[Rfam]
RNA: Small nucleolar RNA SNORD67
Organism: Piaya cayana
RNA sequence: UGCGAGUAUGAUGAGUUGCACUGUGGUGGAGCAAUCAUGUCAGGUGACAUGGACUCUGCUCAGAAUGUCCCUGAUGACAAAUGCAAGUGCACAGGGGCCAUCUGACUCGCU
Numbered sequence: 001u002g003c004g005a006g007u008a009u010g011a012u013g014a015g016u017u018g019c020a021c022u023g024u025g026g027u028g029g030a031g032c033a034a035u036c037a038u039g040u041c042a043g044g045u046g047a048c049a050u051g052g053a054c055u056c057u058g059c060u061c062a063g064a065a066u067g068u069c070c071c072u073g074a075u076g077a078c079a080a081a082u083g084c085a086a087g088u089g090c091a092c093a094g095g096g097g098c099c100a101u102c103u104g105a106c107u108c109g110c111u
Stems, first nucleotide, its partner, number of pairs: 004110001006108001022064001024062002026059004031054001037050005
Dot-bracket structure: ...(.(...............(.((((((.(.....(((((....)))))...).)))).)).)...........................................).).